RNA sequence: CUACAAUGAUGGCAGCAUUUUUCGUCAAUAGCAGCUCACCUAGUGAGUGUCCAUACUUUCAGUCUUAGUGA
Numbered sequence: 001c002u003a004c005a006a007u008g009a010u011g012g013c014a015g016c017a018u019u020u021u022u023c024g025u026c027a028a029u030a031g032c033a034g035c036u037c038a039c040c041u042a043g044u045g046a047g048u049g050u051c052c053a054u055a056c057u058u059u060c061a062g063u064c065u066u067a068g069u070g071a
Stems, first nucleotide, its partner, number of pairs: 002070003008026004
A member of the RNA family "Small nucleolar RNA SNORD56" from Lynx canadensis, 71 nucleotides long.
By type it is a C/D-box small nucleolar RNA.
The family's consensus secondary structure was predicted with PFOLD.
Lineage of the source: Eukaryota > Dipnotetrapodomorpha > Carnivora > Felinae > Lynx.
On this family, see Galardi et al., Mol Cell Biol 2002: "Purified box C/D snoRNPs are able to reproduce site-specific 2'-O-methylation of target RNA in vitro".